[Rfam]
The record is a 92-nucleotide RNA from Hemibagrus wyckioides, which matches "Vault RNA" in Rfam. This family of RNAs are found as part of the enigmatic vault ribonucleoprotein complex. The complex consists of a major vault protein (MVP), two minor vault proteins (VPARP and TEP1), and several small untranslated RNA molecules. It has been suggested that the vault complex is involved in drug resistance. By type it is a non-coding RNA gene. The match comes from Rfam's covariance-model search (63 bits).
RNA sequence: GCGUCAGCUUAGCUAAGCGGUUACUUCGUGGUGAUUCUUUCAAAUCCCCUGGUUAAUCCAGGUUCGAACCGCCGGCACUGUCUGACGUUUUA
Numbered sequence: 001g002c003g004u005c006a007g008c009u010u011a012g013c014u015a016a017g018c019g020g021u022u023a024c025u026u027c028g029u030g031g032u033g034a035u036u037c038u039u040u041c042a043a044a045u046c047c048c049c050u051g052g053u054u055a056a057u058c059c060a061g062g063u064u065c066g067a068a069c070c071g072c073c074g075g076c077a078c079u080g081u082c083u084g085a086c087g088u089u090u091u092a
Stems, first nucleotide, its partner, number of pairs: 002087006012076003017072004025068004
Dot-bracket structure: .((((((....(((..((((....((((....................................)))))))).))).....)))))).....